[Rfam]
Overview: Rfam assigns this 145-nucleotide RNA from Thalictrum thalictroides to the family "small nucleolar RNA snoR135". Rfam classes the family as an H/ACA-box small nucleolar RNA. Pairs were carried over by alignment from the consensus structure, which was predicted with RNAalifold. The literature on the family includes a 2009 paper in Nucleic Acids Res by Chen and Wu, "Mining small RNA sequencing data: a new approach to identify small nucleolar RNAs in Arabidopsis". The source organism's lineage runs through Eukaryota, Streptophyta, Spermatophyta, Ranunculaceae and Thalictrum.
RNA sequence: AAAGCAAGAUUGUGUGUAUCGACGCAGUGCUCAAAUCAAUGCACUUUUAGUCGAAAGAUCUUCUUGCGAUACCAAUUUUUGGGGAAGAUGGGUAGUUGUGUUUCACUGUUGAGUUGAUAUUUCAACAAUCAUUUUCCUCACAUAU
Numbered sequence: 001a002a003a004g005c006a007a008g009a010u011u012g013u014g015u016g017u018a019u020c021g022a023c024g025c026a027g028u029g030c031u032c033a034a035a036u037c038a039a040u041g042c043a044c045u046u047u048u049a050g051u052c053g054a055a056a057g058a059u060c061u062u063c064u065u066g067c068g069a070u071a072c073c074a075a076u077u078u079u080u081g082g083g084g085a086a087g088a089u090g091g092g093u094a095g096u097u098g099u100g101u102u103u104c105a106c107u108g109u110u111g112a113g114u115u116g117a118u119a120u121u122u123c124a125a126c127a128a129u130c131a132u133u134u135u136c137c138u139c140a141c142a143u144a145u
Base pairs, nucleotide, nucleotide: 004067005066006065007064008063009061014044015043016042017041018040019039081139082138083137084136085135086134087133088132089131090130091129095126096125097124098123